[Rfam]
RNA: ASpks TB sRNA
RNA sequence: CUUCACCGACCCCAGCCACAGCGGACGCUCCCGCUCCUGCCCGUACGUCGCCAGCAGCGCCUGCGCCUC
Numbered sequence: 001c002u003u004c005a006c007c008g009a010c011c012c013c014a015g016c017c018a019c020a021g022c023g024g025a026c027g028c029u030c031c032c033g034c035u036c037c038u039g040c041c042c043g044u045a046c047g048u049c050g051c052c053a054g055c056a057g058c059g060c061c062u063g064c065g066c067c068u069c
Base pairs, nucleotide, nucleotide: 016024017023028065030063032059033058037054038053039052041050043048
Dot-bracket structure: ...............((.....))...(.(.((...(((.(.(....).).)))...))...).)....